[Rfam]
RNA sequence: UGAGGAAUAACAGUGCAAUCCUUCUUUGGCACCAUACAAGACAUAGCAAUAGCAUACACAUGUCUUGUGUUGUGCCAAAGGAGAAUUGCCCUGCCAUUCACUC
Numbered sequence: 001u002g003a004g005g006a007a008u009a010a011c012a013g014u015g016c017a018a019u020c021c022u023u024c025u026u027u028g029g030c031a032c033c034a035u036a037c038a039a040g041a042c043a044u045a046g047c048a049a050u051a052g053c054a055u056a057c058a059c060a061u062g063u064c065u066u067g068u069g070u071u072g073u074g075c076c077a078a079a080g081g082a083g084a085a086u087u088g089c090c091c092u093g094c095c096a097u098u099c100a101c102u103c
Stems, first nucleotide, its partner, number of pairs: 005099004011093003015089005021083004027077006034070002
This 103-nucleotide RNA from Corchorus capsularis belongs to the Rfam family "mir-399 microRNA precursor family". It scores 62 bits against the family's covariance model. The literature on the family includes a 2004 paper in Mol Cell by Jones-Rhoades and Bartel, "Computational Identification of Plant MicroRNAs and Their Targets, Including a Stress-Induced miRNA". Pairs were carried over by alignment from the consensus structure, which was predicted with PFOLD. NCBI's taxonomy places the organism under Eukaryota, Euphyllophyta, rosids, Apeibeae, Corchorus. mir-399 was identified in both Arabidopsis thaliana and Oryza sativa computationally and was later experimentally verified. mir-399 is thought to target mRNAs coding for a phosphatase transporter. The mature sequence is excised from the 3' arm of the hairpin. Rfam links the family to the GO terms miRNA-mediated post-transcriptional gene silencing and RISC complex.